[Rfam]
RNA sequence: GUCACGCAAGUGACAUACAAGGUCUAGUAGUAAGAAGCCCCGCCUUAUAGUCGGGGCUUUUUAUUUUUUAAAUUACGGGCAUUUGCCCUUUUUUU
Numbered sequence: 001g002u003c004a005c006g007c008a009a010g011u012g013a014c015a016u017a018c019a020a021g022g023u024c025u026a027g028u029a030g031u032a033a034g035a036a037g038c039c040c041c042g043c044c045u046u047a048u049a050g051u052c053g054g055g056g057c058u059u060u061u062u063a064u065u066u067u068u069u070a071a072a073u074u075a076c077g078g079g080c081a082u083u084u085g086c087c088c089u090u091u092u093u094u095u
Base pairs, nucleotide, nucleotide: 034060035059036058037057038056039055040054041053042052077088078087079086080085
A member of the RNA family "Gammaprotebacteria rimP leader" from Moritella sp. PE36, 95 nucleotides long. The organism belongs to Moritella, within Bacteria. The family's RNA type in Rfam is cis-regulatory leader.